[Rfam]
RNA sequence: UGGCAGGAGGGUAUCACGGUAUAGCUGUGAAGUGCUGUACUGUCCUUCCCCCUGCCGAGAGCAAGGGUUUCCCACAAUCUCUGUCUAACUUGGUUCUGUAGUAAGACAGGGACGCUUGGUCUCAAACAU
Numbered sequence: 001u002g003g004c005a006g007g008a009g010g011g012u013a014u015c016a017c018g019g020u021a022u023a024g025c026u027g028u029g030a031a032g033u034g035c036u037g038u039a040c041u042g043u044c045c046u047u048c049c050c051c052c053u054g055c056c057g058a059g060a061g062c063a064a065g066g067g068u069u070u071c072c073c074a075c076a077a078u079c080u081c082u083g084u085c086u087a088a089c090u091u092g093g094u095u096c097u098g099u100a101g102u103a104a105g106a107c108a109g110g111g112a113c114g115c116u117u118g119g120u121c122u123c124a125a126a127c128a129u
Base pairs, nucleotide, nucleotide: 003055004054005053006052007051016043017042018041019040020039021038022037023036024035025034080110081109082108083107085105086104087102